IhtA sRNA: a 105-nucleotide sequence from Chlamydia pneumoniae. Rfam's curators put it in the seed alignment. On this family, see Tattersall et al., PLoS One 2012: "Translation inhibition of the developmental cycle protein HctA by the small RNA IhtA is conserved across Chlamydia". Rfam's curators write: A histone like protein HctA and HctB play role in controlling the differentiation between the two cell types. The expression of HctA is tightly regulated and repressed by small non-coding RNA, IhtA until the late RB to EB re-differentiation. The IhtA RNA is conserved across Chlamydia species.

RNA sequence: AAGAUGAUAUUCUCCGCCGUGGAAUAGCUUCUGACUCUGUUGCAUUCAGGGGGAAAGCCAAGAAGAUGUAGAGUCGGCCGUAUAACUUUAUGUUUUCUUGGCUUU
Numbered sequence: 001a002a003g004a005u006g007a008u009a010u011u012c013u014c015c016g017c018c019g020u021g022g023a024a025u026a027g028c029u030u031c032u033g034a035c036u037c038u039g040u041u042g043c044a045u046u047c048a049g050g051g052g053g054a055a056a057g058c059c060a061a062g063a064a065g066a067u068g069u070a071g072a073g074u075c076g077g078c079c080g081u082a083u084a085a086c087u088u089u090a091u092g093u094u095u096u097c098u099u100g101g102c103u104u105u
Base pairs, nucleotide, nucleotide: 002032003031006028008026009025010024011023012022013021035051036050037049038048039047054105055104056103057102058101059100060099061098062097063096065095066094070087071086
Rfam links the family to the GO term translation repressor activity.